[Rfam]
RNA sequence: AUGCCAGUUCAUUAUCUCUGCUCAACCUCAAAAUGUUUUGCAGAGCAUUAUUUUUAAAAGGCACUGGUAAAGUAAAGCCACAGUACGAGCCUUGGAGAUUUCGUUGUCUUUGAGGUCCCAAAGAGUUGGCUACAUCA
Numbered sequence: 001a002u003g004c005c006a007g008u009u010c011a012u013u014a015u016c017u018c019u020g021c022u023c024a025a026c027c028u029c030a031a032a033a034u035g036u037u038u039u040g041c042a043g044a045g046c047a048u049u050a051u052u053u054u055u056a057a058a059a060g061g062c063a064c065u066g067g068u069a070a071a072g073u074a075a076a077g078c079c080a081c082a083g084u085a086c087g088a089g090c091c092u093u094g095g096a097g098a099u100u101u102c103g104u105u106g107u108c109u110u111u112g113a114g115g116u117c118c119c120a121a122a123g124a125g126u127u128g129g130c131u132a133c134a135u136c137a
Stems, first nucleotide, its partner, number of pairs: 003068005017044005077130004089116007097108003
Small nucleolar RNA SNORA33: a 137-nucleotide RNA sequence from Turnix velox. From the family's description: ACA33 is a member of the H/ACA class of snoRNA that guide the sites of modification of uridines to pseudouridines. Rfam 15.1 lists 1,176 matches to the family in 522 species. A search with the family's covariance model found it, with a score of 84 bits. By type it is an H/ACA-box small nucleolar RNA. The family's consensus secondary structure was predicted with PFOLD. Its family is annotated with nucleolus and RNA processing in the Gene Ontology.